About this RNA: The family of this 130-nucleotide RNA sequence from Affinundibacterium nitidum is "Manganese Mn2+ riboswitch aptamer (yybP-ykoY)". The match comes from Rfam's covariance-model search (61 bits). Lineage of the source: Bacteria > Pseudomonadota > Betaproteobacteria > Burkholderiales > Affinundibacterium.
RNA sequence: CUAUAAUGGCGGGAGUAUUCAUUGGGGAGUAGCCUGUUUCUUUCUCUGAAAGUUGUGAGACGAAAUAAGCGCAUCAACAUACUUGGUCAUCCGACCAUGGUGCGUUUGAUCUGGAUUGAUCUUCAGAUUU
Numbered sequence: 001c002u003a004u005a006a007u008g009g010c011g012g013g014a015g016u017a018u019u020c021a022u023u024g025g026g027g028a029g030u031a032g033c034c035u036g037u038u039u040c041u042u043u044c045u046c047u048g049a050a051a052g053u054u055g056u057g058a059g060a061c062g063a064a065a066u067a068a069g070c071g072c073a074u075c076a077a078c079a080u081a082c083u084u085g086g087u088c089a090u091c092c093g094a095c096c097a098u099g100g101u102g103c104g105u106u107u108g109a110u111c112u113g114g115a116u117u118g119a120u121c122u123u124c125a126g127a128u129u130u
Base pairs, nucleotide, nucleotide: 037065038064039063040062067107068106069105070104071103072102073101074100075099076098084097085096086095087094088093108129109128110127111126112125113124114123